Shown here is a 49-nucleotide RNA from Vibrio sp. AND4, a member of the family "malK-II RNA". Taxonomically the source falls in Vibrio (Bacteria, Pseudomonadota, Vibrionales, Vibrionaceae).

RNA sequence: AUCCUUAUGUCACUGCUCGCUAGAUAAUUCAUAUUAUGAUGAGCGGUGA
Number, nucleotide and partner (000 for none) at each position: 001a000002u000003c000004c000005u000006u000007a000008u000009g000010u049011c048012a047013c046014u045015g044016c043017u042018c000019g000020c000021u000022a000023g000024a000025u000026a000027a000028u000029u000030c000031a000032u000033a000034u000035u000036a000037u000038g000039a000040u000041g000042a017043g016044c015045g014046g013047u012048g011049a010